[Rfam]
RNA: Small nucleolar RNA SNORA14
Organism: Sphaeramia orbicularis
RNA sequence: CUGCAUCCUUCAUAAACCCCCCGGUUAUCGUCUGUGGUCUCUGGGAUAAGGACGGAUGCCACAUGAACCUUAGAACCAUCCAAAGCUGAGAGUCGGUGUCAGUGGGUCUCAGUUAUUUCACCUCUAAGACACGA
Numbered sequence: 001c002u003g004c005a006u007c008c009u010u011c012a013u014a015a016a017c018c019c020c021c022c023g024g025u026u027a028u029c030g031u032c033u034g035u036g037g038u039c040u041c042u043g044g045g046a047u048a049a050g051g052a053c054g055g056a057u058g059c060c061a062c063a064u065g066a067a068c069c070u071u072a073g074a075a076c077c078a079u080c081c082a083a084a085g086c087u088g089a090g091a092g093u094c095g096g097u098g099u100c101a102g103u104g105g106g107u108c109u110c111a112g113u114u115a116u117u118u119c120a121c122c123u124c125u126a127a128g129a130c131a132c133g134a
Stems, first nucleotide, its partner, number of pairs: 003059004010052002013049001020045005027038002064133002069128006084114007093106002097102001